The family of this 69-nucleotide sequence from Enterococcus faecalis is "Enterococcus sRNA 64". For this family Rfam cites "Whole-genome mapping of 5' RNA ends in bacteria by tagged sequencing: a comprehensive view in Enterococcus faecalis" (Innocenti et al., RNA, 2015). Rfam 15.1 lists 18 matches to the family in 12 species. By type it is a small RNA. The base pairs follow the family's consensus structure, which was predicted with RNAfold.

RNA sequence: UAAAGCACUCGCUUCCUUUCUGAUUGGGUUUCGUCACUUUAAUCUUACAGGAAUGAGUGCUUUUUGUGU
Dot-bracket structure: .((((((((((.(((((....((((((((......)).))))))....)))))))))))))))......